[Rfam]
RNA sequence: UCUUCUGUGAUGAAUGACACAGUGACUUUCGUUCUUCUGAGUUUACUGAAGCCAACCUCUGUUCUUAGAAGA
Number, nucleotide and partner (000 for none) at each position: 001u072002c071003u070004u000005c068006u000007g000008u000009g000010a000011u000012g000013a000014a000015u000016g000017a000018c000019a000020c000021a000022g000023u000024g000025a000026c000027u000028u000029u000030c000031g000032u000033u000034c000035u000036u000037c000038u000039g000040a000041g000042u000043u000044u000045a000046c000047u000048g000049a000050a000051g000052c000053c000054a000055a000056c000057c000058u000059c000060u000061g000062u000063u000064c000065u000066u000067a000068g005069a000070a003071g002072a001
RNA: Small nucleolar RNA SNORD59
Organism: Gadus morhua